Description: This 78-nucleotide RNA sequence from Electrophorus electricus belongs to the Rfam family "mir-216 microRNA precursor family". On this family, see Shao et al., Gene 2008: "Identification of novel chicken microRNAs and analysis of their genomic organization". The base pairs follow the family's consensus structure, which was predicted with WAR. The organism belongs to Electrophorus, within Eukaryota. A search with the family's covariance model found it, with a score of 60 bits.
Nucleotides: 078
Base pairs, nucleotide, nucleotide: 004075005074006073007072010069011068012067013066014065015064016063017062020060021059022058023056026054027053028052029051030050
Number, partner (000 for none) and nucleotide at each position: 001000c002000a003000c004075u005074a006073g007072u008000c009000c010069a011068a012067u013066c014065u015064c016063a017062g018000c019000u020060g021059g022058c023056a024000a025000c026054u027053g028052u029051g030050a031000a032000u033000a034000c035000u036000u037000c038000u039000u040000u041000u042000a043000g044000u045000u046000c047000c048000c049000c050030u051029c052028a053027c054026a055000a056023u057000g058022g059021c060020u061000g062017c063016u064015g065014g066013g067012a068011u069010u070000a071000u072007g073006c074005u075004a076000a077000a078000c